[Rfam]
RNA sequence: GUGCAGAUCCUUGGGAGCCCUGUUAGACUCUGGAUUUUACACUUGGAGUGAACGGGCGCCAUCCCGAGGCUUUGCACA
Numbered sequence: 001g002u003g004c005a006g007a008u009c010c011u012u013g014g015g016a017g018c019c020c021u022g023u024u025a026g027a028c029u030c031u032g033g034a035u036u037u038u039a040c041a042c043u044u045g046g047a048g049u050g051a052a053c054g055g056g057c058g059c060c061a062u063c064c065c066g067a068g069g070c071u072u073u074g075c076a077c078a
Stems, first nucleotide, its partner, number of pairs: 001077007009069008017059002019056006027049007
Rfam assigns this 78-nucleotide RNA sequence from Pongo pygmaeus to the family "mir-887 microRNA precursor family". The base pairs follow the family's consensus structure, which was predicted with RNAalifold. Gene Ontology terms of the family: miRNA-mediated post-transcriptional gene silencing and RISC complex.